[Rfam]
RNA sequence: GGAAGAUCAUGGUCCCCGGUGGGGUGGCUGGACUUCAAAUCCAGAUGGAGCCGCCGACGGUCCUUGGCAGGUUCAACUCCUAUGGUCUUCC
Numbered sequence: 001g002g003a004a005g006a007u008c009a010u011g012g013u014c015c016c017c018g019g020u021g022g023g024g025u026g027g028c029u030g031g032a033c034u035u036c037a038a039a040u041c042c043a044g045a046u047g048g049a050g051c052c053g054c055c056g057a058c059g060g061u062c063c064u065u066g067g068c069a070g071g072u073u074c075a076a077c078u079c080c081u082a083u084g085g086u087c088u089u090c091c
Stems, first nucleotide, its partner, number of pairs: 001091009012025005028044005047064002050061002069081003
Shown here is a 91-nucleotide RNA sequence from Arsenophonus endosymbiont of Aleurodicus floccissimus, a member of the family "Selenocysteine transfer RNA". The source organism's lineage runs through Bacteria, Pseudomonadati, Enterobacterales, Morganellaceae and Arsenophonus.